[Rfam]
RNA sequence: CCGUCGCCCGGUUCAAGUAAUCCAGGAUAGGCUGUUACCAGGCUGCACGGCCUAUUCUUGAUUACUUGUUUCGGGAGGCGG
Numbered sequence: 001c002c003g004u005c006g007c008c009c010g011g012u013u014c015a016a017g018u019a020a021u022c023c024a025g026g027a028u029a030g031g032c033u034g035u036u037a038c039c040a041g042g043c044u045g046c047a048c049g050g051c052c053u054a055u056u057c058u059u060g061a062u063u064a065c066u067u068g069u070u071u072c073g074g075g076a077g078g079c080g081g
Base pairs, nucleotide, nucleotide: 002080003079004078005077007075008074009073010072011071014068015067016066017065018064019063020062021061022060024058025057026056027055028054029053030052031051032050033049
RNA: mir-26 microRNA precursor family